[Rfam]
RNA sequence: CCAGAGGGUUGGGCGAUCGCGUCAUGUGCAAACAUGUCGAGGAAAGUCCGGGCUCCACGUAACGACGGUGCCGGGUAACGCCCGGCGGGGGUGACCCCAGGGACAGUGCCACAGAGAGCAGACCGCCCCGGCGCACGCCGGGGUAAGGGUGAAAGGGUGCGGUAAGAGCGCACCGCGGGGCCGGUAACGGCAACGGCACGGCAAACCCCACCGGGAGCAAGACCGAAUAGGGGUGGCAAAUGGGUUUGUUGCAACUCGUCGCCCGGGUUGGUUGCUGGAGGCGGCAUGCAAAUGUCGUCCGAGAGGAAUGAUCGCCCAGUUCCCGUUUCGGCGGGGAUGGACAGAACCCGGCUUACAGACCCUCUGGCACC
Numbered sequence: 001c002c003a004g005a006g007g008g009u010u011g012g013g014c015g016a017u018c019g020c021g022u023c024a025u026g027u028g029c030a031a032a033c034a035u036g037u038c039g040a041g042g043a044a045a046g047u048c049c050g051g052g053c054u055c056c057a058c059g060u061a062a063c064g065a066c067g068g069u070g071c072c073g074g075g076u077a078a079c080g081c082c083c084g085g086c087g088g089g090g091g092u093g094a095c096c097c098c099a100g101g102g103a104c105a106g107u108g109c110c111a112c113a114g115a116g117a118g119c120a121g122a123c124c125g126c127c128c129c130g131g132c133g134c135a136c137g138c139c140g141g142g143g144u145a146a147g148g149g150u151g152a153a154a155g156g157g158u159g160c161g162g163u164a165a166g167a168g169c170g171c172a173c174c175g176c177g178g179g180g181c182c183g184g185u186a187a188c189g190g191c192a193a194c195g196g197c198a199c200g201g202c203a204a205a206c207c208c209c210a211c212c213g214g215g216a217g218c219a220a221g222a223c224c225g226a227a228u229a230g231g232g233g234u235g236g237c238a239a240a241u242g243g244g245u246u247u248g249u250u251g252c253a254a255c256u257c258g259u260c261g262c263c264c265g266g267g268u269u270g271g272u273u274g275c276u277g278g279a280g281g282c283g284g285c286a287u288g289c290a291a292a293u294g295u296c297g298u299c300c301g302a303g304a305g306g307a308a309u310g311a312u313c314g315c316c317c318a319g320u321u322c323c324c325g326u327u328u329c330g331g332c333g334g335g336g337a338u339g340g341a342c343a344g345a346a347c348c349c350g351g352c353u354u355a356c357a358g359a360c361c362c363u364c365u366g367g368c369a370c371c
Stems, first nucleotide, its partner, number of pairs: 001367010011356001012316007020039002023036005044354003048351005053217004062250001066213005071085005086100001087098004101208002106206002108202003123148002125144008156174006175197001176195002180191004221273004231264006242257005280299008
RNA: Bacterial RNase P class A